[Rfam]
RNA sequence: GAAUCGUCAACCCGGCACCGCCCCGGCGGGUCAGACCGGGACCGCCCGGCCGAAAGGCAGGACAGCC
Numbered sequence: 001g002a003a004u005c006g007u008c009a010a011c012c013c014g015g016c017a018c019c020g021c022c023c024c025g026g027c028g029g030g031u032c033a034g035a036c037c038g039g040g041a042c043c044g045c046c047c048g049g050c051c052g053a054a055a056g057g058c059a060g061g062a063c064a065g066c067c
Stems, first nucleotide, its partner, number of pairs: 011040005018029004044063001046061002049058003